[Rfam]
RNA: Bacterial RNase P class A
Organism: Sphingomonas sp. BK345
RNA sequence: CCAGGGGGCCGGGCGGCCGCGUCACGCAACAGCGUGCCGAGGAAAGUCCGGGCUCCACGGAACGACGGUGGCGGGUAACGCCCGCCGGCCAAGGGCGCGAGCCCGCGGUCAGGGACAGUGCAACAGAGAGCAGACGGCCACGGCUUCGGCCGGGCCAAGGUGAAAGGGUGCGGUAAGAGCGCACCGCGCGGCCGGCAACGGUCGUGGCACGGUAAACCCCACCGGGAGCAAGACCGAAUAGGGGCGGCAGGGGCGCGUUCGCGCGUCCGGGGCGUGUUCCCGCUCGCCGCCCGGGUUGGUUGCUGGAGCGCGUCGGCGACGGCGCGCCGAGAGGAAUGGUCGCCCAGUCCCGCGAGGGAUGGACAGAACCCGGCUUACAGGCCCCCUGGCAUU
Numbered sequence: 001c002c003a004g005g006g007g008g009c010c011g012g013g014c015g016g017c018c019g020c021g022u023c024a025c026g027c028a029a030c031a032g033c034g035u036g037c038c039g040a041g042g043a044a045a046g047u048c049c050g051g052g053c054u055c056c057a058c059g060g061a062a063c064g065a066c067g068g069u070g071g072c073g074g075g076u077a078a079c080g081c082c083c084g085c086c087g088g089c090c091a092a093g094g095g096c097g098c099g100a101g102c103c104c105g106c107g108g109u110c111a112g113g114g115a116c117a118g119u120g121c122a123a124c125a126g127a128g129a130g131c132a133g134a135c136g137g138c139c140a141c142g143g144c145u146u147c148g149g150c151c152g153g154g155c156c157a158a159g160g161u162g163a164a165a166g167g168g169u170g171c172g173g174u175a176a177g178a179g180c181g182c183a184c185c186g187c188g189c190g191g192c193c194g195g196c197a198a199c200g201g202u203c204g205u206g207g208c209a210c211g212g213u214a215a216a217c218c219c220c221a222c223c224g225g226g227a228g229c230a231a232g233a234c235c236g237a238a239u240a241g242g243g244g245c246g247g248c249a250g251g252g253g254c255g256c257g258u259u260c261g262c263g264c265g266u267c268c269g270g271g272g273c274g275u276g277u278u279c280c281c282g283c284u285c286g287c288c289g290c291c292c293g294g295g296u297u298g299g300u301u302g303c304u305g306g307a308g309c310g311c312g313u314c315g316g317c318g319a320c321g322g323c324g325c326g327c328c329g330a331g332a333g334g335a336a337u338g339g340u341c342g343c344c345c346a347g348u349c350c351c352g353c354g355a356g357g358g359a360u361g362g363a364c365a366g367a368a369c370c371c372g373g374c375u376u377a378c379a380g381g382c383c384c385c386c387u388g389g390c391a392u393u
Base pairs, nucleotide, nucleotide: 001389002388003387004386005385006384007383008382009381010380011378012344013343014342015341016340017339018338020039021038023036024035025034026033027032044376045375046374048373049372050371051370052369053228054227055226056225062278066224067223068222069221070220071085072084073083074082075081086112087110088109089108090107113219114218118217119216120213121212135159137155138154139153141152142151143150144149167185168184169183170182171181172180186208187206188205189204190203191202192201193200194199232301233300234299235298242292243291244290245289246288247287270285271284272283273282274281308327309326310325311324312323313322314321315320